[Rfam]
Shown here is a 399-nucleotide RNA sequence from Segatella buccae, a member of the family "transfer-messenger RNA".
It is annotated as a non-coding RNA gene.
The family's consensus secondary structure is taken from published work.
Bacterial tmRNA, also known as 10Sa RNA or SsrA, is named for its dual tRNA and mRNA-like properties. Its role is to liberate the mRNA from a stalled ribosome. To accomplish this part of the tmRNA is used as a reading frame that ends in a translation stop signal. The broken mRNA is replaced in the ribosome by the tmRNA and translation of the tmRNA leads to addition of a proteolysis tag to the incomplete protein enabling recognition by a protease. Recently a number of permuted tmRNA genes have been found encoded in two parts. tmRNAs have been identified in eubacteria and some chloroplasts but are absent from archaeal and eukaryote nuclear genomes.

RNA sequence: GGGCUUGACUGGAUUUGACGGCGAGACGAAAUGGUAUGUAAGCAUGCGGAGCCUCGUUGGCUAUCUCCUUAAACAGAGUGAACAAAAAUUUAAUUGGCGAAAACAAUUACGCUCUCGCUGCCUAGUCGAAGUAUAGUAGACUAUUGGCUUUAUUCCGUCACCAGGUGAUGGAACGAGACACUGCUCCAAAGAUGUUGUUCCGAAUCAGAGGGUCAAGCGGUGCAGGUAAAUCGGAAAUAGCUUGGGUAUGCCUCGCUGCCCGAGUGAAAUUUAGAGGAUAAGGCAUCAGUUGGUGGUCCGGGUCUUGCUGAUGUUCGAAAAUCAAAGGCCGGAAUAAGCAUGUAGAAAGCGUAUGAUUUCCUUGUGCGGACGUGGGUUCGACUCCCACCAGGUCCACGA
Numbered sequence: 001g002g003g004c005u006u007g008a009c010u011g012g013a014u015u016u017g018a019c020g021g022c023g024a025g026a027c028g029a030a031a032u033g034g035u036a037u038g039u040a041a042g043c044a045u046g047c048g049g050a051g052c053c054u055c056g057u058u059g060g061c062u063a064u065c066u067c068c069u070u071a072a073a074c075a076g077a078g079u080g081a082a083c084a085a086a087a088a089u090u091u092a093a094u095u096g097g098c099g100a101a102a103a104c105a106a107u108u109a110c111g112c113u114c115u116c117g118c119u120g121c122c123u124a125g126u127c128g129a130a131g132u133a134u135a136g137u138a139g140a141c142u143a144u145u146g147g148c149u150u151u152a153u154u155c156c157g158u159c160a161c162c163a164g165g166u167g168a169u170g171g172a173a174c175g176a177g178a179c180a181c182u183g184c185u186c187c188a189a190a191g192a193u194g195u196u197g198u199u200c201c202g203a204a205u206c207a208g209a210g211g212g213u214c215a216a217g218c219g220g221u222g223c224a225g226g227u228a229a230a231u232c233g234g235a236a237a238u239a240g241c242u243u244g245g246g247u248a249u250g251c252c253u254c255g256c257u258g259c260c261c262g263a264g265u266g267a268a269a270u271u272u273a274g275a276g277g278a279u280a281a282g283g284c285a286u287c288a289g290u291u292g293g294u295g296g297u298c299c300g301g302g303u304c305u306u307g308c309u310g311a312u313g314u315u316c317g318a319a320a321a322u323c324a325a326a327g328g329c330c331g332g333a334a335u336a337a338g339c340a341u342g343u344a345g346a347a348a349g350c351g352u353a354u355g356a357u358u359u360c361c362u363u364g365u366g367c368g369g370a371c372g373u374g375g376g377u378u379c380g381a382c383u384c385c386c387a388c389c390a391g392g393u394c395c396a397c398g399a
Stems, first nucleotide, its partner, number of pairs: 001395007019368002021365005030358003034354006043342005048068004054081005179222006186211002191206003198234002240265009251277004282316002284313007292304003297333003300329001372388005